[Rfam]
Rfam assigns this 89-nucleotide RNA from Polypterus senegalus to the family "Vault RNA".
The match comes from Rfam's covariance-model search (58 bits).

Nucleotides: 089
Stems, first nucleotide, its partner, number of pairs: 002084006012073004017069004025059003029055001
Number, partner (000 for none) and nucleotide at each position: 001000g002084c003083g004082u005081c006080g007079g008000u009000u010000u011000a012073g013072c014071u015070c016000u017069g018068u019067g020066g021000u022000u023000a024000c025059u026058u027057c028000a029055c030000u031000c032000u033000g034000a035000a036000a037000u038000u039000a040000c041000u042000a043000c044000u045000a046000c047000u048000u049000g050000c051000a052000a053000u054000c055029g056000c057027g058026a059025g060000u061000u062000c063000c064000c065000a066020c067019c068018a069017c070015g071014g072013g073012c074000g075000c076000u077000g078000u079007c080006c081005g082004a083003c084002g085000u086000u087000u088000u089000g
About the family: This family of RNAs are found as part of the enigmatic vault ribonucleoprotein complex. The complex consists of a major vault protein (MVP), two minor vault proteins (VPARP and TEP1), and several small untranslated RNA molecules. It has been suggested that the vault complex is involved in drug resistance. Rfam classes the family as a non-coding RNA gene. Taxonomically the source falls in Polypterus (Eukaryota, Bilateria, Craniata, Actinopterygii).